[Rfam]
RNA sequence: GUUCAAACAGAGAGAGGCUUCGCUAUCCGCGUUGAGGUGUUUGCUCGUCCUUGGAUCUGUCUAUUCCGGGUCCGGUUCACUGCCGGUAUUGAACAACUAUUGCUGGGUUGAGGGCUCAAGUUCUAUAGACGAGAACCAGUUGCUAGCUUGGGCGAUGAAAUUUCUGGGUUGCGAAAGACUGGGAAGUGUGUUGAGAAUGUUCUGGUUGAUUCAUACUGCAGACUUAGUCUUGAGUAUUGACCUAGAGGAAGGGACGAAUUUGCUCAGCGUCCAGAACGGGACCCAUCUCGUGUUGGAGUCAAAGCUUAGUGCUUGUCUGUUCUGGGUAGCGUUGUGCUGAUUGCAGAACUUGUCGAAGGGUUGUAUUUGACUCCUGAGUUGCUGUGCUGGAUUGUGGACUUUCUCUGAGUUGGCCUCUCGGAGCGUGAGAUCAGGACAGGCCUAAGGGAGGGCAGUCCAGGGUUGCCUCUUGCUUGUUCGCAGGCUUGGGGCGACCCCUCCAAAUUUUGGGG
Numbered sequence: 001g002u003u004c005a006a007a008c009a010g011a012g013a014g015a016g017g018c019u020u021c022g023c024u025a026u027c028c029g030c031g032u033u034g035a036g037g038u039g040u041u042u043g044c045u046c047g048u049c050c051u052u053g054g055a056u057c058u059g060u061c062u063a064u065u066c067c068g069g070g071u072c073c074g075g076u077u078c079a080c081u082g083c084c085g086g087u088a089u090u091g092a093a094c095a096a097c098u099a100u101u102g103c104u105g106g107g108u109u110g111a112g113g114g115c116u117c118a119a120g121u122u123c124u125a126u127a128g129a130c131g132a133g134a135a136c137c138a139g140u141u142g143c144u145a146g147c148u149u150g151g152g153c154g155a156u157g158a159a160a161u162u163u164c165u166g167g168g169u170u171g172c173g174a175a176a177g178a179c180u181g182g183g184a185a186g187u188g189u190g191u192u193g194a195g196a197a198u199g200u201u202c203u204g205g206u207u208g209a210u211u212c213a214u215a216c217u218g219c220a221g222a223c224u225u226a227g228u229c230u231u232g233a234g235u236a237u238u239g240a241c242c243u244a245g246a247g248g249a250a251g252g253g254a255c256g257a258a259u260u261u262g263c264u265c266a267g268c269g270u271c272c273a274g275a276a277c278g279g280g281a282c283c284c285a286u287c288u289c290g291u292g293u294u295g296g297a298g299u300c301a302a303a304g305c306u307u308a309g310u311g312c313u314u315g316u317c318u319g320u321u322c323u324g325g326g327u328a329g330c331g332u333u334g335u336g337c338u339g340a341u342u343g344c345a346g347a348a349c350u351u352g353u354c355g356a357a358g359g360g361u362u363g364u365a366u367u368u369g370a371c372u373c374c375u376g377a378g379u380u381g382c383u384g385u386g387c388u389g390g391a392u393u394g395u396g397g398a399c400u401u402u403c404u405c406u407g408a409g410u411u412g413g414c415c416u417c418u419c420g421g422a423g424c425g426u427g428a429g430a431u432c433a434g435g436a437c438a439g440g441c442c443u444a445a446g447g448g449a450g451g452g453c454a455g456u457c458c459a460g461g462g463u464u465g466c467c468u469c470u471u472g473c474u475u476g477u478u479c480g481c482a483g484g485c486u487u488g489g490g491g492c493g494a495c496c497c498c499u500c501c502a503a504a505u506u507u508u509g510g511g512g
Stems, first nucleotide, its partner, number of pairs: 280300003283296003302314004